[Rfam]
RNA sequence: CGUACGAAAGGGCAAAUCCAUUGAAAAAUGGAGGCGCAAAACUAAAGGGGCUAAGGUUUUUUCAUAACUAUGCUAGCCAGUUGCCGAA
Numbered sequence: 001c002g003u004a005c006g007a008a009a010g011g012g013c014a015a016a017u018c019c020a021u022u023g024a025a026a027a028a029u030g031g032a033g034g035c036g037c038a039a040a041a042c043u044a045a046a047g048g049g050g051c052u053a054a055g056g057u058u059u060u061u062u063c064a065u066a067a068c069u070a071u072g073c074u075a076g077c078c079a080g081u082u083g084c085c086g087a088a
Stems, first nucleotide, its partner, number of pairs: 012037002017032006040082004047078002049074003056068003